[Rfam]
RNA sequence: AGAAAAAUAACCCUGCAUUUCUGCAGGGUCCUUCCAUUUCCGUCUAAACGGUUUAGAAGGCAAAAGGGAGAGGAGAAACCGGAGGAAGAACUUAAGGGGAAUGUAAGUCUUCUCCGCGG
Numbered sequence: 001a002g003a004a005a006a007a008u009a010a011c012c013c014u015g016c017a018u019u020u021c022u023g024c025a026g027g028g029u030c031c032u033u034c035c036a037u038u039u040c041c042g043u044c045u046a047a048a049c050g051g052u053u054u055a056g057a058a059g060g061c062a063a064a065a066g067g068g069a070g071a072g073g074a075g076a077a078a079c080c081g082g083a084g085g086a087a088g089a090a091c092u093u094a095a096g097g098g099g100a101a102u103g104u105a106a107g108u109c110u111u112c113u114c115c116g117c118g119g
Stems, first nucleotide, its partner, number of pairs: 011028007029068005040051003080116004085112004090108005
Rfam assigns this 119-nucleotide RNA sequence from Bacillus sp. J14TS2 to the family "ylbH leader".
The source organism's lineage runs through Bacteria, Bacillota, Bacilli, Caryophanales and Bacillus.
About the family: This family is a putative regulatory RNA structure that is found upstream of the ylbH gene in B. subtilis and related low GC Gram-positive bacteria.
Rfam links the family to the GO term regulation of gene expression.